[Rfam]
RNA sequence: CUGCGGGGAUGAUCUCCCUGAACUCUCUCUUGCUGAUAUUUCCAUGGAGAAGCUUCUGAACAAGCUCUGAGUGGC
Numbered sequence: 001c002u003g004c005g006g007g008g009a010u011g012a013u014c015u016c017c018c019u020g021a022a023c024u025c026u027c028u029c030u031u032g033c034u035g036a037u038a039u040u041u042c043c044a045u046g047g048a049g050a051a052g053c054u055u056c057u058g059a060a061c062a063a064g065c066u067c068u069g070a071g072u073g074g075c
Stems, first nucleotide, its partner, number of pairs: 001074004
Shown here is a 75-nucleotide sequence from Vireo altiloquus, a member of the family "Small nucleolar RNA SNORD26". For this family Rfam cites "A mammalian gene with introns instead of exons generating stable RNA products" (Tycowski et al., Nature, 1996). The organism belongs to Vireo, within Eukaryota. The family has 17 seed sequences and 451 matches in Rfam 15.1. Pairs were carried over by alignment from the consensus structure, which was predicted with PFOLD.